[Rfam]
RNA sequence: AAAUUAUCUGCUAGGCUAUCCAUAAAAUCUUUUUAUGACAUAUCCCUAUCUGAUUAUUCAGAAUCUUUUGUUUCUGUUAGCUUGACCAUAUCAAGAAAACUCUGAUAUUUUUUUAAAAGUAUGCAA
Numbered sequence: 001a002a003a004u005u006a007u008c009u010g011c012u013a014g015g016c017u018a019u020c021c022a023u024a025a026a027a028u029c030u031u032u033u034u035a036u037g038a039c040a041u042a043u044c045c046c047u048a049u050c051u052g053a054u055u056a057u058u059c060a061g062a063a064u065c066u067u068u069u070g071u072u073u074c075u076g077u078u079a080g081c082u083u084g085a086c087c088a089u090a091u092c093a094a095g096a097a098a099a100c101u102c103u104g105a106u107a108u109u110u111u112u113u114u115a116a117a118a119g120u121a122u123g124c125a126a
Stems, first nucleotide, its partner, number of pairs: 005123003008119002012115001014113002018108002023104002030099005

Shown here is a 126-nucleotide RNA sequence from Populus alba, a member of the family "MIR480 microRNA precursor family". Gene Ontology terms of the family: miRNA-mediated post-transcriptional gene silencing and RISC complex. A reference for the family is Lu et al. (2005), "Novel and mechanical stress-responsive MicroRNAs in Populus trichocarpa that are absent from Arabidopsis", Plant Cell. The base pairs follow the family's consensus structure, which was predicted with WAR. The family has 69 seed sequences and 3,070 matches in Rfam 15.1.